[Rfam]
RNA sequence: UGACCUGAUCCGCUGAAUCCAUACAGAACGGAGGACCCAACUGAUUAUUCCAGAAUAAUUAUGGGGUGAAGCCGAAAGGCCGGGGGACUUCUGCCUUCCGAACCCGUCAGCUAACUUCGUAAGCGUUGCAGGAGAGAGGA
Numbered sequence: 001u002g003a004c005c006u007g008a009u010c011c012g013c014u015g016a017a018u019c020c021a022u023a024c025a026g027a028a029c030g031g032a033g034g035a036c037c038c039a040a041c042u043g044a045u046u047a048u049u050c051c052a053g054a055a056u057a058a059u060u061a062u063g064g065g066g067u068g069a070a071g072c073c074g075a076a077a078g079g080c081c082g083g084g085g086g087a088c089u090u091c092u093g094c095c096u097u098c099c100g101a102a103c104c105c106g107u108c109a110g111c112u113a114a115c116u117u118c119g120u121a122a123g124c125g126u127u128g129c130a131g132g133a134g135a136g137a138g139g140a
Stems, first nucleotide, its partner, number of pairs: 011125004018027002028120006038063002064105003072079002082099004

This 140-nucleotide RNA from Bacillus sp. NRRL B-14911 belongs to the Rfam family "c-di-AMP riboswitch aptamer (ydaO/yuaA leader)". The sequence is in the family's curated seed alignment. Rfam's curators write: This family represents a conserved RNA structure found upstream of the ydaO and yuaA genes in Bacillus subtilis and related genes in other bacteria. The source organism's lineage runs through Bacteria, Bacillati, Bacilli, Caryophanales and Bacillus.